[Rfam]
RNA sequence: UCCGUGGUGAUGUGGAAUCUGAAGGAAGCGGGCAGCAAACUUAGGGUGUCUCUCGAAACACGAACUUCAUAUGAGGCUAGUUGCCAUUGGAUGAAACAAAGUCCUUUCUGUCGAAGAUGGUACAGAGUAAAUGAAGCAGGCAGGUGGAAGGAAAGACUUCACC
Numbered sequence: 001u002c003c004g005u006g007g008u009g010a011u012g013u014g015g016a017a018u019c020u021g022a023a024g025g026a027a028g029c030g031g032g033c034a035g036c037a038a039a040c041u042u043a044g045g046g047u048g049u050c051u052c053u054c055g056a057a058a059c060a061c062g063a064a065c066u067u068c069a070u071a072u073g074a075g076g077c078u079a080g081u082u083g084c085c086a087u088u089g090g091a092u093g094a095a096a097c098a099a100a101g102u103c104c105u106u107u108c109u110g111u112c113g114a115a116g117a118u119g120g121u122a123c124a125g126a127g128u129a130a131a132u133g134a135a136g137c138a139g140g141c142a143g144g145u146g147g148a149a150g151g152a153a154a155g156a157c158u159u160c161a162c163c
Stems, first nucleotide, its partner, number of pairs: 001016006028163001031160002036155001040150003045145001046141002049138001065136006076128003082122006089104004
RNA: Group II catalytic intron D1-D4-3
Organism: Aeribacillus pallidus